[Rfam]
This 73-nucleotide sequence from Caenorhabditis remanei belongs to the Rfam family "mir-2 microRNA precursor family". The sequence is in the family's curated seed alignment. The base pairs follow the family's consensus structure, which was predicted with PFOLD. Rfam 15.1 lists 918 matches to the family in 280 species. The source organism's lineage runs through Eukaryota, Protostomia, Rhabditida, Rhabditoidea and Caenorhabditis.
RNA sequence: AAGCCCGUCAAAGUGGCUCGUGUUAUGUUGAAUCUUGAAGUAAUCAUAUCACAGCCAGCUUUGAUGUGCUUCC
Numbered sequence: 001a002a003g004c005c006c007g008u009c010a011a012a013g014u015g016g017c018u019c020g021u022g023u024u025a026u027g028u029u030g031a032a033u034c035u036u037g038a039a040g041u042a043a044u045c046a047u048a049u050c051a052c053a054g055c056c057a058g059c060u061u062u063g064a065u066g067u068g069c070u071u072c073c
Base pairs, nucleotide, nucleotide: 006066007065008064009063010062011061012060013059014057015056016055017054018053020052021051022050026048027047028046